[Rfam]
RNA sequence: CUGAAUCAGCCUCCUUGUGACUCUCAGGCUUUCAUAUAUAUAUAUAUAUAGGAAAGCCUGAGAGUCACAAGGAGGCUGAUUCAG
Number, nucleotide and partner (000 for none) at each position: 001c084002u083003g082004a081005a080006u079007c078008a077009g076010c075011c074012u073013c072014c071015u070016u069017g068018u067019g066020a065021c064022u063023c062024u061025c060026a059027g058028g057029c056030u055031u054032u053033c052034a047035u046036a045037u044038a043039u000040a000041u000042a000043u038044a037045u036046a035047u034048a000049u000050a000051g000052g033053a032054a031055a030056g029057c028058c027059u026060g025061a024062g023063a022064g021065u020066c019067a018068c017069a016070a015071g014072g013073a012074g011075g010076c009077u008078g007079a006080u005081u004082c003083a002084g001
RNA: mir-4716 microRNA precursor family